[Rfam]
RNA sequence: AUCACCCGGGGAUCUUAUUAAAAUGCAGAUUCAGAUUCCACAGAUCUGGGGCAGGACCUGAGUUUCUGCAUUUCUAACAAGCUCCCAGGUGAUUCUCA
Numbered sequence: 001a002u003c004a005c006c007c008g009g010g011g012a013u014c015u016u017a018u019u020a021a022a023a024u025g026c027a028g029a030u031u032c033a034g035a036u037u038c039c040a041c042a043g044a045u046c047u048g049g050g051g052c053a054g055g056a057c058c059u060g061a062g063u064u065u066c067u068g069c070a071u072u073u074c075u076a077a078c079a080a081g082c083u084c085c086c087a088g089g090u091g092a093u094u095c096u097c098a
Stems, first nucleotide, its partner, number of pairs: 003091003009085003014081003018077003021073003025069005032062001
Overview:
Shown here is a 98-nucleotide RNA sequence from Camelus dromedarius, a member of the family "mir-544 microRNA precursor family". Lineage of the source: Eukaryota > Metazoa > Chordata > Amniota > Camelus. It scores 67 bits against the family's covariance model. Rfam 15.1 lists 10,750 matches to the family in 132 species. The family's consensus secondary structure was predicted with RNAalifold. A reference for the family is Chiang et al. (2010), "Mammalian microRNAs: experimental evaluation of novel and previously annotated genes", Genes Dev. Its family is annotated with RISC complex and miRNA-mediated post-transcriptional gene silencing in the Gene Ontology.